Shown here is an 80-nucleotide sequence from Anolis carolinensis, a member of the family "mir-2970 microRNA precursor family". The literature on the family includes a 2011 paper in BMC Genomics by Gunaratne et al., "Song exposure regulates known and novel microRNAs in the zebra finch auditory forebrain". The sequence is in the family's curated seed alignment. The base pairs follow the family's consensus structure, which was predicted with RNAalifold.
[Rfam]
RNA sequence: GUCACUGCAGACAGUCAGUAGUUGGUCUGGCAUAAGCAGAAAGUUUCAGAUCACCUCUUGGCUGUGAGUAGUGUGGAGCC
Numbered sequence: 001g002u003c004a005c006u007g008c009a010g011a012c013a014g015u016c017a018g019u020a021g022u023u024g025g026u027c028u029g030g031c032a033u034a035a036g037c038a039g040a041a042a043g044u045u046u047c048a049g050a051u052c053a054c055c056u057c058u059u060g061g062c063u064g065u066g067a068g069u070a071g072u073g074u075g076g077a078g079c080c
Stems, first nucleotide, its partner, number of pairs: 003073006011065008020056002023053008